The family of this 101-nucleotide sequence from [Clostridium] hylemonae is "THF (Tetrahydrofolate) riboswitch aptamer". Lineage of the source: Bacteria > Bacillati > Bacillota > Lachnoclostridium > [Clostridium] hylemonae. The family has 101 seed sequences and 747 matches in Rfam 15.1.
RNA sequence: AGCAGAGUAGAGAUGUGUGCGUUAAGUGCCAGCCGGACGGGGAGUUGCCGGCAGGACGAAAAGCCUGGAAGCUUGCGGUACAUAUCUCGCAUCCCGCUGCU
Numbered sequence: 001a002g003c004a005g006a007g008u009a010g011a012g013a014u015g016u017g018u019g020c021g022u023u024a025a026g027u028g029c030c031a032g033c034c035g036g037a038c039g040g041g042g043a044g045u046u047g048c049c050g051g052c053a054g055g056a057c058g059a060a061a062a063g064c065c066u067g068g069a070a071g072c073u074u075g076c077g078g079u080a081c082a083u084a085u086c087u088c089g090c091a092u093c094c095c096g097c098u099g100c101u
Base pairs, nucleotide, nucleotide: 001101002100003099004098005097010088011087012086013085014084015083016082017081018080019079020077021076022075026057027056029055030054032052033051034050035049036048040094041093042092044090061074062073063072064071